Shown here is a 127-nucleotide sequence from Streptomyces argyrophylli, a member of the family "Streptomyces RNA 3920". The base pairs follow the family's consensus structure. Taxonomically the source falls in Streptomyces (Bacteria, Bacillati, Actinomycetes, Streptomycetaceae). A search with the family's covariance model found it, with a score of 109 bits. Rfam classes the family as a small RNA. Rfam's curators write: Identified by deep sequencing of transcriptome at the end of exponential growth phase. Sequencing size consistent with northern blot size.
RNA sequence: GAUAGGCUUCUGUCGUUAGCGUGAUUGGACACUGACCCAGAGUCAACUAGCCUGGUUCGCACGGUUCUUCCCCCGGGAAAGCCGCAGACGGUCCGAGCCACGAGGGGGGAGGCUCGGACCGUCCCGC
Numbered sequence: 001g002a003u004a005g006g007c008u009u010c011u012g013u014c015g016u017u018a019g020c021g022u023g024a025u026u027g028g029a030c031a032c033u034g035a036c037c038c039a040g041a042g043u044c045a046a047c048u049a050g051c052c053u054g055g056u057u058c059g060c061a062c063g064g065u066u067c068u069u070c071c072c073c074c075g076g077g078a079a080a081g082c083c084g085c086a087g088a089c090g091g092u093c094c095g096a097g098c099c100a101c102g103a104g105g106g107g108g109g110a111g112g113c114u115c116g117g118a119c120c121g122u123c124c125c126g127c
Base pairs, nucleotide, nucleotide: 001014002013003012004011005010015051016050017049018048021032022031023030033045034044035043036042058075059074063070064069076083077082087123088122089121090120091119092118093117094116095115096114097113098112099111101108